Rfam assigns this 132-nucleotide RNA sequence from Populus trichocarpa to the family "mir-172 microRNA precursor family".
The literature on the family includes a 2004 paper in Mol Cell by Jones-Rhoades and Bartel, "Computational Identification of Plant MicroRNAs and Their Targets, Including a Stress-Induced miRNA".
Rfam describes the family as follows. mir-172 has been experimentally verified in Arabidopsis thaliana.
The base pairs follow the family's consensus structure, which was predicted with PFOLD.
It is one of the family's seed sequences.
Lineage of the source: Eukaryota > Mesangiospermae > eudicotyledons > Gunneridae > Populus.
RNA sequence: GCCGAUGGAGCACCAUCAAGAUUCACAAACUUUAUUAGGGCUAAUAAGUGGUGAUGAUGGUGGCUUUUGGUGGUCCCUUCGUUUCAACCCAAUAGCCAUUUGAAUUGGGAAUCUUGAUGAUGCUGCAGCGGC
Numbered sequence: 001g002c003c004g005a006u007g008g009a010g011c012a013c014c015a016u017c018a019a020g021a022u023u024c025a026c027a028a029a030c031u032u033u034a035u036u037a038g039g040g041c042u043a044a045u046a047a048g049u050g051g052u053g054a055u056g057a058u059g060g061u062g063g064c065u066u067u068u069g070g071u072g073g074u075c076c077c078u079u080c081g082u083u084u085c086a087a088c089c090c091a092a093u094a095g096c097c098a099u100u101u102g103a104a105u106u107g108g109g110a111a112u113c114u115u116g117a118u119g120a121u122g123c124u125g126c127a128g129c130g131g132c
Stems, first nucleotide, its partner, number of pairs: 004129001006127002009124004014119011026107002